[Rfam]
RNA sequence: CAAAAAUGUUGCUGGUUGAGUAUCCUUACGGGCUUUUCAACCGGUUUUCUUUUAACCCUAUAAAAUAGGAGAUGUGUUAGUGGCCCGUAUAGCUGGCAUUAACAUCCCUGAU
Numbered sequence: 001c002a003a004a005a006a007u008g009u010u011g012c013u014g015g016u017u018g019a020g021u022a023u024c025c026u027u028a029c030g031g032g033c034u035u036u037u038c039a040a041c042c043g044g045u046u047u048u049c050u051u052u053u054a055a056c057c058c059u060a061u062a063a064a065a066u067a068g069g070a071g072a073u074g075u076g077u078u079a080g081u082g083g084c085c086c087g088u089a090u091a092g093c094u095g096g097c098a099u100u101a102a103c104a105u106c107c108c109u110g111a112u
Stems, first nucleotide, its partner, number of pairs: 004053003008049001011046001013044001024096002029087004037111003

A member of the RNA family "Alpha operon ribosome binding site" from Thalassotalea sp. ND16A, 112 nucleotides long. The organism belongs to Thalassotalea, within Bacteria. Gene Ontology term of the family: ribosome binding. The bacterial alpha operon ribosome binding site is surrounded by this complex pseudoknotted structure. For this family Rfam cites "Translational repression of the Escherichia coli alpha operon mRNA: importance of an mRNA conformational switch and a ternary entrapment complex" (Schlax et al., J Biol Chem, 2001). The match comes from Rfam's covariance-model search (77 bits).